[Rfam]
RNA sequence: UACAUCCUGCGAUGUGCGUUACGGUUUACGUUGUUUUGAACCAAUGUAUGUUUCUAGGGAGUUCUAUAUUGUGAUGCGGCUGACCUGCCCCCUAAAGGGGACUUCAAAAGCACCGCUGCGGACACCCACCUGCGAGAGCGGGUUUCGAAACAAGAAAAUCGGACGGCAUUUGCGGGUUUUCU
Dot-bracket structure: .(.(.((((((((((.(((............((((.((((((..............(((.((((...(..(((.(((.....(....((((.....))))...).....))).))))..)))).))).............))).))).))))..........))))))).)))))).).)..
Shown here is a 182-nucleotide sequence from Paenibacillus sp. J2TS4, a member of the family "6S / SsrS RNA". For this family Rfam cites "6S RNA regulates E. coli RNA polymerase activity" (Wassarman and Storz, Cell, 2000).